[Rfam]
RNA: L31-Gammaproteobacteria ribosomal protein leader
Organism: Enterobacillus tribolii
RNA sequence: CGCGUGGUGUUUGGCGGAACAGGGCUGGAUAGCGACGCGGCCUUAUACAGAGGU
Numbered sequence: 001c002g003c004g005u006g007g008u009g010u011u012u013g014g015c016g017g018a019a020c021a022g023g024g025c026u027g028g029a030u031a032g033c034g035a036c037g038c039g040g041c042c043u044u045a046u047a048c049a050g051a052g053g054u
Stems, first nucleotide, its partner, number of pairs: 001039005007033002011028004